[Rfam]
About this RNA: The record is a 111-nucleotide sequence from Prunus armeniaca, which matches "MIR398 microRNA precursor family" in Rfam. It scores 81 bits against the family's covariance model. Rfam 15.1 lists 627 matches to the family in 211 species. The base pairs follow the family's consensus structure, which was predicted with WAR. Lineage of the source: Eukaryota > eudicotyledons > Gunneridae > Amygdaloideae > Prunus.
RNA sequence: GGUCACCCCAAAGGAGUGAUGCUGAGAACACAAGAGGCAUUGAUUGCUAAAUUAAUGGUGUUAGCAUAACUAAUGUACUUUGUGUUCUCAGGUCACCCCUUUGGGAUACCU
Numbered sequence: 001g002g003u004c005a006c007c008c009c010a011a012a013g014g015a016g017u018g019a020u021g022c023u024g025a026g027a028a029c030a031c032a033a034g035a036g037g038c039a040u041u042g043a044u045u046g047c048u049a050a051a052u053u054a055a056u057g058g059u060g061u062u063a064g065c066a067u068a069a070c071u072a073a074u075g076u077a078c079u080u081u082g083u084g085u086u087c088u089c090a091g092g093u094c095a096c097c098c099c100u101u102u103g104g105g106a107u108a109c110c111u
Stems, first nucleotide, its partner, number of pairs: 007105002011101004016096004024089010